[Rfam]
RNA sequence: GGCCUCCUGGUGCUUCCCACAGGCUGUUCUUAUACUGACUACAUAGAAAGAGGAGGCAAAGAAAAGUCAAUCUACCCUGUUACACCUCAUCCCAUGCCCUGUGCCUGCUCUGUAUUAUGAAUGGGGAGACAUGG
Numbered sequence: 001g002g003c004c005u006c007c008u009g010g011u012g013c014u015u016c017c018c019a020c021a022g023g024c025u026g027u028u029c030u031u032a033u034a035c036u037g038a039c040u041a042c043a044u045a046g047a048a049a050g051a052g053g054a055g056g057c058a059a060a061g062a063a064a065a066g067u068c069a070a071u072c073u074a075c076c077c078u079g080u081u082a083c084a085c086c087u088c089a090u091c092c093c094a095u096g097c098c099c100u101g102u103g104c105c106u107g108c109u110c111u112g113u114a115u116u117a118u119g120a121a122u123g124g125g126g127a128g129a130c131a132u133g134g
Base pairs, nucleotide, nucleotide: 002057003056004055005054006053007052008051021040022039026035027032075126076125077124078123079122080121088112089111093107094106096104097103